ALIL pseudoknot: a 117-nucleotide RNA from Chelativorans petroleitrophicus.
The match comes from Rfam's covariance-model search (116 bits).
Gene Ontology term of the family: positive regulation of translational frameshifting.
The family's RNA type in Rfam is cis-regulatory element.
[Rfam]
RNA sequence: UGCUUAUUUUGCGAUGGCGGAGCUCGACCGCCCAUACAGACGAUGAUCGCGUUCAUCGACGAUCACCGCGGAGAAUACGGGGUCGAGCCGAUCUGCCGGGUGCUGCCGAUCGCCCCG
Numbered sequence: 001u002g003c004u005u006a007u008u009u010u011g012c013g014a015u016g017g018c019g020g021a022g023c024u025c026g027a028c029c030g031c032c033c034a035u036a037c038a039g040a041c042g043a044u045g046a047u048c049g050c051g052u053u054c055a056u057c058g059a060c061g062a063u064c065a066c067c068g069c070g071g072a073g074a075a076u077a078c079g080g081g082g083u084c085g086a087g088c089c090g091a092u093c094u095g096c097c098g099g100g101u102g103c104u105g106c107c108g109a110u111c112g113c114c115c116c117g
Base pairs, nucleotide, nucleotide: 016032017031018030019029020028078117079116080115081114082113089112090111092109093108095106096105098103
Dot-bracket structure: ...............(((((.......))))).............................................(((((......((.((.((.(....).)).)).)))))))